[Rfam]
RNA sequence: UGUAUCACUGAUGAUAAUUUGGCUCCCUCUACUGACCUCUGUGAGGAGAUGGCCAUUGUUACCCAAUUUCUGUCUGAGAUGCA
Numbered sequence: 001u002g003u004a005u006c007a008c009u010g011a012u013g014a015u016a017a018u019u020u021g022g023c024u025c026c027c028u029c030u031a032c033u034g035a036c037c038u039c040u041g042u043g044a045g046g047a048g049a050u051g052g053c054c055a056u057u058g059u060u061a062c063c064c065a066a067u068u069u070c071u072g073u074c075u076g077a078g079a080u081g082c083a
Base pairs, nucleotide, nucleotide: 001083002082003081004080005079006078
Background
A member of the RNA family "Small nucleolar RNA SNORD100" from Oryzias latipes, 83 nucleotides long. Rfam 15.1 lists 838 matches to the family in 626 species. Clan: SNORD100 clan. The sequence is in the family's curated seed alignment. A reference for the family is Galardi et al. (2002), "Purified box C/D snoRNPs are able to reproduce site-specific 2'-O-methylation of target RNA in vitro", Mol Cell Biol.